Shown here is an 80-nucleotide RNA from Sphingomonas sp. Leaf343, a member of the family "Makes More Granules Regulator RNA (mmgR)". A search with the family's covariance model found it, with a score of 48 bits. Its Rfam clan is "suhB sRNA clan". NCBI's taxonomy places the organism under Bacteria, Pseudomonadati, Pseudomonadota, Sphingomonadales, Sphingomonas. For this family Rfam cites "Evidence for a second class of S-adenosylmethionine riboswitches and other regulatory RNA motifs in alpha-proteobacteria" (Corbino et al., Genome Biol, 2005). It is annotated as a small RNA.
[Rfam]
RNA sequence: AGACCGUGCCUUUCAGGCAUCCUCUCCUAAAAACUUUCAAGGGGUCGGACUUUCGGGUCCGGCCCUUUUUUUCGUCGCGA
Numbered sequence: 001a002g003a004c005c006g007u008g009c010c011u012u013u014c015a016g017g018c019a020u021c022c023u024c025u026c027c028u029a030a031a032a033a034c035u036u037u038c039a040a041g042g043g044g045u046c047g048g049a050c051u052u053u054c055g056g057g058u059c060c061g062g063c064c065c066u067u068u069u070u071u072u073c074g075u076c077g078c079g080a
Stems, first nucleotide, its partner, number of pairs: 008018004042065009